[Rfam]
RNA sequence: CUAUUUACCGAGAGUGGGACAUAGUGGGUUUUCACUCUGGUUAUAAGCUCUAAUGCUCUAUCACCGGGUAAAAAUCCACAAUGGCCCAUCUCUUGGAC
Numbered sequence: 001c002u003a004u005u006u007a008c009c010g011a012g013a014g015u016g017g018g019a020c021a022u023a024g025u026g027g028g029u030u031u032u033c034a035c036u037c038u039g040g041u042u043a044u045a046a047g048c049u050c051u052a053a054u055g056c057u058c059u060a061u062c063a064c065c066g067g068g069u070a071a072a073a074a075u076c077c078a079c080a081a082u083g084g085c086c087c088a089u090c091u092c093u094u095g096g097a098c
Stems, first nucleotide, its partner, number of pairs: 015088004020083002024079009034069003038066001040064002043061003
RNA: mir-36 microRNA precursor family